Rfam assigns this 88-nucleotide RNA sequence from Dactylosporangium vinaceum to the family "ZMP/ZTP riboswitch aptamer (pfl RNA motif)". Taxonomically the source falls in Dactylosporangium (Bacteria, Bacillati, Actinomycetes, Micromonosporales). Its family is annotated with one-carbon metabolic process and regulation of purine nucleotide biosynthetic process in the Gene Ontology. The family's consensus secondary structure is taken from published work.
RNA sequence: CGUCAGUCACGCGACUGGCGCACAUCAAGGUGGAGUCAACCACCGGGGAGCUUCCGCGAUCGUGGCACCGCGCGCCUGGGUGCCAUCG
Numbered sequence: 001c002g003u004c005a006g007u008c009a010c011g012c013g014a015c016u017g018g019c020g021c022a023c024a025u026c027a028a029g030g031u032g033g034a035g036u037c038a039a040c041c042a043c044c045g046g047g048g049a050g051c052u053u054c055c056g057c058g059a060u061c062g063u064g065g066c067a068c069c070g071c072g073c074g075c076c077u078g079g080g081u082g083c084c085a086u087c088g
Stems, first nucleotide, its partner, number of pairs: 003059002009053001011051002015047002017076005030043004065083005